Rfam assigns this 160-nucleotide sequence to the family "U1 spliceosomal RNA". Rfam's curators put it in the seed alignment. U1 is a small nuclear RNA (snRNA) component of the spliceosome (involved in pre-mRNA splicing). Its 5' end forms complementary base pairs with the 5' splice junction, thus defining the 5' donor site of an intron. There are significant differences in sequence and secondary structure between metazoan and yeast U1 snRNAs, the latter being much longer (568 nucleotides as compared to 164 nucleotides in human). Nevertheless, secondary structure predictions suggest that all U1 snRNAs share a 'common core' consisting of helices I, II, the proximal region of III, and IV. This family does not contain the larger yeast sequences. The family's RNA type in Rfam is spliceosomal small nuclear RNA.
[Rfam]
RNA sequence: AUACUUACCUGGACGGGGUCGACGGGCGAUCAAGAAGGCCCGUGGCUGGGUCAAUGGCUCACAUUGCACUUGGUGGGUGCGUUGGCCCACCAUCUCCCCAAGUGGGAGAGUGGACGUCAUAAUUUGUGCUAGAGGGGGUACGCGUUCGCGCGGCCCCUGC
Numbered sequence: 001a002u003a004c005u006u007a008c009c010u011g012g013a014c015g016g017g018g019u020c021g022a023c024g025g026g027c028g029a030u031c032a033a034g035a036a037g038g039c040c041c042g043u044g045g046c047u048g049g050g051u052c053a054a055u056g057g058c059u060c061a062c063a064u065u066g067c068a069c070u071u072g073g074u075g076g077g078u079g080c081g082u083u084g085g086c087c088c089a090c091c092a093u094c095u096c097c098c099c100a101a102g103u104g105g106g107a108g109a110g111u112g113g114a115c116g117u118c119a120u121a122a123u124u125u126g127u128g129c130u131a132g133a134g135g136g137g138g139u140a141c142g143c144g145u146u147c148g149c150g151c152g153g154c155c156c157c158u159g160c
Base pairs, nucleotide, nucleotide: 012118013117014116015115017047018046019045020044021043023042024041025040026039027038048088049087050086052085054082055081056080058079059077060076061074062073090113091112092111093109095106097105098104134158135157136156137155141152142151143150144149